[Rfam]
Nucleotides: 378
Stems, first nucleotide, its partner, number of pairs: 001374007019347005025341003032336002035333005044322005049071005056088005062082001134146003160196006166188006173181001175208006213241002216238006224258006260296005267291003271287002276314004351367005
Number, partner (000 for none) and nucleotide at each position: 001374g002373g003372g004371g005370g006369u007368g008000a009000c010000c011000g012000g013000u014000u015000u016000c017000g018000a019347c020346u021345u022344c023343g024000a025341c026340a027339u028000g029000u030000c031000a032336c033335g034000c035333c036332a037331g038330g039329g040000g041000a042000a043000g044322c045321g046320g047319g048318u049071c050070g051069a052068g053067g054000a055000c056088u057087g058086c059085g060084g061000a062082c063000a064000u065000a066000a067053c068052c069051u070050c071049g072000u073000u074000a075000a076000c077000a078000c079000u080000g081000u082062g083000a084060c085059c086058g087057c088056a089000c090000a091000c092000a093000a094000u095000a096000a097000g098000u099000g100000c101000c102000a103000a104000u105000a106000a107000c108000a109000c110000g111000c112000g113000c114000a115000c116000u117000c118000a119000g120000g121000g122000c123000c124000a125000g126000c127000u128000g129000g130000c131000c132000c133000u134146c135145g136144c137000c138000g139000c140000c141000u142000g143000a144136g145135c146134g147000a148000g149000g150000a151000c152000c153000u154000c155000g156000c157000c158000c159000u160196u161195g162194u163193c164192a165191g166188c167187c168186c169185g170184g171183g172000a173181u174000c175208g176207c177206c178205u179204c180203c181173g182000g183171c184170c185169c186168g187167g188166g189000a190000u191165c192164u193163g194162g195161c196160a197000u198000c199000g200000c201000u202000a203180g204179g205178a206177g207176g208175c209000u210000a211000a212000a213241c214240c215000g216238a217237u218236c219235g220234a221233c222000c223000c224258g225257g226256u227255c228254a229253c230000g231000g232000g233221g234220u235219c236218g237217g238216u239000a240214g241213g242000g243000a244000a245000a246000c247000c248000a249000a250000a251000c252000a253229g254228u255227g256226a257225c258224u259000g260296g261295g262294c263293c264292c265000g266000u267291c268290g269289g270000u271287g272286a273000c274000u275000c276314g277313c278312c279311u280000g281000c282000g283000u284000g285000a286272u287271c288000a289269c290268c291267g292264g293263g294262g295261c296260c297000g298000a299000g300000a301000a302000a303000a304000u305000c306000a307000c308000a309000g310000c311279a312278g313277g314276c315000u316000g317000c318048g319047c320046c321045c322044g323000g324000a325000g326000a327000a328000g329039c330038c331037c332036u333035g334000a335033c336032g337000c338000g339027g340026u341025g342000c343023c344022g345021a346020a347019g348000g349000a350000c351367g352366c353365g354364g355363g356000u357000u358000c359000g360000a361000u362000u363355c364354c365353c366352g367351c368007c369006a370005c371004c372003u373002c374001c375000a376000c377000c378000c
Rfam assigns this 378-nucleotide sequence from Sphaerisporangium krabiense to the family "transfer-messenger RNA". Rfam classes the family as a non-coding RNA gene. A search with the family's covariance model found it, with a score of 143 bits. Taxonomically the source falls in Sphaerisporangium (Bacteria, Bacillati, Actinomycetes, Streptosporangiales).